[Rfam]
RNA: TPP riboswitch aptamer (THI element)
Organism: Prauserella marina
RNA sequence: GGGCGUCCGCACGGGAGCCCUGGCGACGGGCUGAGAGGGAGCUGCCGCUCCGACCGUGGAACCUGAUCCGGAUCAUGCCGGCGCAGGGAGCGUGAUCUCAUGAAAG
Numbered sequence: 001g002g003g004c005g006u007c008c009g010c011a012c013g014g015g016a017g018c019c020c021u022g023g024c025g026a027c028g029g030g031c032u033g034a035g036a037g038g039g040a041g042c043u044g045c046c047g048c049u050c051c052g053a054c055c056g057u058g059g060a061a062c063c064u065g066a067u068c069c070g071g072a073u074c075a076u077g078c079c080g081g082c083g084c085a086g087g088g089a090g091c092g093u094g095a096u097c098u099c100a101u102g103a104a105a106g
Stems, first nucleotide, its partner, number of pairs: 006094001008092003011057004017031004038051005062087004068081004